The record is a 99-nucleotide RNA from Yeguia hominis, which matches "THF (Tetrahydrofolate) riboswitch aptamer" in Rfam. A reference for the family is Ames et al. (2010), "A eubacterial riboswitch class that senses the coenzyme tetrahydrofolate", Chem Biol. The base pairs follow the family's consensus structure, which is taken from published work.
[Rfam]
RNA sequence: AACAGAGUAGAAUCCCGCGCGUUAAGUGCCCUCCGAACGGGGAGUUGUCGGAUGGACGAAAAGCAGAAGCUUGCGGUGUGGGGUUCGCAUCCCGCUGUU
Numbered sequence: 001a002a003c004a005g006a007g008u009a010g011a012a013u014c015c016c017g018c019g020c021g022u023u024a025a026g027u028g029c030c031c032u033c034c035g036a037a038c039g040g041g042g043a044g045u046u047g048u049c050g051g052a053u054g055g056a057c058g059a060a061a062a063g064c065a066g067a068a069g070c071u072u073g074c075g076g077u078g079u080g081g082g083g084u085u086c087g088c089a090u091c092c093c094g095c096u097g098u099u
Stems, first nucleotide, its partner, number of pairs: 001099005010086010020075003026057002029055002032052005040092003044088001061072004
Tetrahydrofolate (THF) riboswitch was first reported for Ames et al. as an RNA motif in 5' untranslated (5'-UTR)regions of folate transport and biosynthesis genes in Firmicutes genomes.
Its family is annotated with tetrahydrofolate metabolic process in the Gene Ontology.